[Rfam]
A member of the RNA family "Small nucleolar RNA SNORD16" from Oncorhynchus kisutch, 99 nucleotides long. The source organism's lineage runs through Eukaryota, Opisthokonta, Protacanthopterygii, Salmoninae and Oncorhynchus. The base pairs follow the family's consensus structure, which was predicted with PFOLD.
Nucleotides: 099
Base pairs, nucleotide, nucleotide: 001099002098003097021082022081023080024079030072031071032070033069034068039064040063042058043057044056045055046054
Number, partner (000 for none) and nucleotide at each position: 001099u002098g003097c004000u005000a006000u007000g008000a009000u010000g011000g012000u013000g014000u015000a016000a017000u018000u019000u020000g021082c022081g023080u024079c025000c026000u027000a028000c029000u030072u031071u032070g033069c034068g035000a036000u037000c038000a039064g040063u041000c042058g043057a044056c045055a046054g047000a048000u049000g050000c051000c052000u053000a054046c055045u056044g057043u058042c059000a060000u061000a062000u063040g064039c065000u066000g067000g068034c069033g070032c071031a072030a073000g074000u075000g076000a077000a078000u079024g080023a081022c082021g083000a084000c085000a086000g087000c088000u089000g090000a091000a092000u093000c094000u095000g096000a097003g098002c099001a